[Rfam]
RNA: ZMP/ZTP riboswitch aptamer (pfl RNA motif)
RNA sequence: GUGCCCGGUCGCGACUGGCGAAGGGUGGAACCAACCACCGGGGAGCGACCGGAGUCACCUCCACCGCGGCGUCGAUCGCCUGGGCUCGCGGG
Numbered sequence: 001g002u003g004c005c006c007g008g009u010c011g012c013g014a015c016u017g018g019c020g021a022a023g024g025g026u027g028g029a030a031c032c033a034a035c036c037a038c039c040g041g042g043g044a045g046c047g048a049c050c051g052g053a054g055u056c057a058c059c060u061c062c063a064c065c066g067c068g069g070c071g072u073c074g075a076u077c078g079c080c081u082g083g084g085c086u087c088g089c090g091g092g
Base pairs, nucleotide, nucleotide: 005052006051007050008049009048010047011046012045015042016041017080018079019078020077021076025038026037027036028035069087071085072084073083